RNA: Small nucleolar RNA SNORA3/SNORA45 family
RNA sequence: GCCGAGACUAGAGUCACAUCUGGACACUGCCGGUUGUCCUGGUGUGCUAGAGUGCUCGGACAGUGACCACUAACCUAUAUUCACUGGCUGGGACCAUUCUUGACUCAGUCAGUCACCAUGUUAGUGACAGGA
Numbered sequence: 001g002c003c004g005a006g007a008c009u010a011g012a013g014u015c016a017c018a019u020c021u022g023g024a025c026a027c028u029g030c031c032g033g034u035u036g037u038c039c040u041g042g043u044g045u046g047c048u049a050g051a052g053u054g055c056u057c058g059g060a061c062a063g064u065g066a067c068c069a070c071u072a073a074c075c076u077a078u079a080u081u082c083a084c085u086g087g088c089u090g091g092g093a094c095c096a097u098u099c100u101u102g103a104c105u106c107a108g109u110c111a112g113u114c115a116c117c118a119u120g121u122u123a124g125u126g127a128c129a130g131g132a
Stems, first nucleotide, its partner, number of pairs: 002059005007053003012048002015046006023038004070124005076118001083113005089107004094102001